[Rfam]
RNA sequence: GAUAAAACGGGUGAGAAUCCCGUUCGCCGUAAGCCUAAGGGUUCCUGGGGAAGGUAAAUCCGCCCAGGGUUAGCCGGUGCCUAAGGCGAGGCCGAAAGGCGUAGCCGAUGGGGAGCAGGUUAAUACUCCUGCGCUCCUCGCGUAACACGGGUACGCCGGUCCGAAGCAGUGUAGGCUAAUUAGAUUGCCUCAGGGCGCUUAUGAUCCCGAUAUCUGCUGAGGGGCGGCCGAGAAAACCGCGCGAGAAACCGUACUAAAACCGACACAGGUAGGCGAGAUGAGUAUUCUAAGGCGCU
Numbered sequence: 001g002a003u004a005a006a007a008c009g010g011g012u013g014a015g016a017a018u019c020c021c022g023u024u025c026g027c028c029g030u031a032a033g034c035c036u037a038a039g040g041g042u043u044c045c046u047g048g049g050g051a052a053g054g055u056a057a058a059u060c061c062g063c064c065c066a067g068g069g070u071u072a073g074c075c076g077g078u079g080c081c082u083a084a085g086g087c088g089a090g091g092c093c094g095a096a097a098g099g100c101g102u103a104g105c106c107g108a109u110g111g112g113g114a115g116c117a118g119g120u121u122a123a124u125a126c127u128c129c130u131g132c133g134c135u136c137c138u139c140g141c142g143u144a145a146c147a148c149g150g151g152u153a154c155g156c157c158g159g160u161c162c163g164a165a166g167c168a169g170u171g172u173a174g175g176c177u178a179a180u181u182a183g184a185u186u187g188c189c190u191c192a193g194g195g196c197g198c199u200u201a202u203g204a205u206c207c208c209g210a211u212a213u214c215u216g217c218u219g220a221g222g223g224g225c226g227g228c229c230g231a232g233a234a235a236a237c238c239g240c241g242c243g244a245g246a247a248a249c250c251g252u253a254c255u256a257a258a259a260c261c262g263a264c265a266c267a268g269g270u271a272g273g274c275g276a277g278a279u280g281a282g283u284a285u286u287c288u289a290a291g292g293c294g295c296u
Stems, first nucleotide, its partner, number of pairs: 006024006025294004033274004039255002044068006053061002075251004080111002085106003089102001091100003115132005135247001137245007149238002155228004160224003165218005170192002174189003178186002194211001196209002260269002276288003
RNA: Bacterial large subunit ribosomal RNA, nucleotides 1240 to 1535
Organism: Gemmata obscuriglobus